[Rfam]
About this RNA: The record is a 184-nucleotide RNA from Halobacillus karajensis, which matches "Lysine riboswitch aptamer" in Rfam. A search with the family's covariance model found it, with a score of 112 bits.

RNA sequence: CGGUGAGGUAGAGGUGCAGACACCAUCAGUAAUCAAUAGGAGCUCGACAAGCGUCGAUCAUUGAUGGAAGGGGAUGUUUGCCGAAGUGUUUCAUGGUGAGUCAAGUUAUGAAACGCUGGUGUAUAUCUGAAUAAGAGAUACACUGUCAUGCAUGCUUUUGGGUGCAUGGGGCGCUACUGAUCGA
Numbered sequence: 001c002g003g004u005g006a007g008g009u010a011g012a013g014g015u016g017c018a019g020a021c022a023c024c025a026u027c028a029g030u031a032a033u034c035a036a037u038a039g040g041a042g043c044u045c046g047a048c049a050a051g052c053g054u055c056g057a058u059c060a061u062u063g064a065u066g067g068a069a070g071g072g073g074a075u076g077u078u079u080g081c082c083g084a085a086g087u088g089u090u091u092c093a094u095g096g097u098g099a100g101u102c103a104a105g106u107u108a109u110g111a112a113a114c115g116c117u118g119g120u121g122u123a124u125a126u127c128u129g130a131a132u133a134a135g136a137g138a139u140a141c142a143c144u145g146u147c148a149u150g151c152a153u154g155c156u157u158u159u160g161g162g163u164g165c166a167u168g169g170g171g172c173g174c175u176a177c178u179g180a181u182c183g184a
Stems, first nucleotide, its partner, number of pairs: 007178005016081007024073001032065006039058001085117012118144007126136003146169007
For this family Rfam cites "Riboswitches Control Fundamental Biochemical Pathways in Bacillus subtilis and Other Bacteria" (Mandal et al., Cell, 2003).